[Rfam]
RNA sequence: UCAUAGUGCGCAGCAUCCUAUGAACAUGAGUUCUUUCAGGAUGCGUGAGGUGGCUGCUCGCUAGAGCCGCCCCUGCCUGUGCAGCGGUGAGGCCGUCGAGGUCUCCGGCUCAGGCUAAUUCCCAGCAGUCACCCGGCCCGUGGGCUCACCGGUACAUCCCCGGUGCCCCGGCCGCCGUCCCCA
Numbered sequence: 001u002c003a004u005a006g007u008g009c010g011c012a013g014c015a016u017c018c019u020a021u022g023a024a025c026a027u028g029a030g031u032u033c034u035u036u037c038a039g040g041a042u043g044c045g046u047g048a049g050g051u052g053g054c055u056g057c058u059c060g061c062u063a064g065a066g067c068c069g070c071c072c073c074u075g076c077c078u079g080u081g082c083a084g085c086g087g088u089g090a091g092g093c094c095g096u097c098g099a100g101g102u103c104u105c106c107g108g109c110u111c112a113g114g115c116u117a118a119u120u121c122c123c124a125g126c127a128g129u130c131a132c133c134c135g136g137c138c139c140g141u142g143g144g145c146u147c148a149c150c151g152g153u154a155c156a157u158c159c160c161c162g163g164u165g166c167c168c169c170g171g172c173c174g175c176c177g178u179c180c181c182c183a
Stems, first nucleotide, its partner, number of pairs: 012058004017053001060115003064111006071101002134177004143173004147165006
The family of this 183-nucleotide sequence from Kitasatospora setae is "Actinobacteria sRNA Ms_IGR-5". NCBI's taxonomy places the organism under Bacteria, Bacillati, Actinomycetes, Kitasatosporales, Kitasatospora setae. The literature on the family includes a 2013 paper in RNA by Li et al., "Identification of small RNAs in Mycobacterium smegmatis using heterologous Hfq".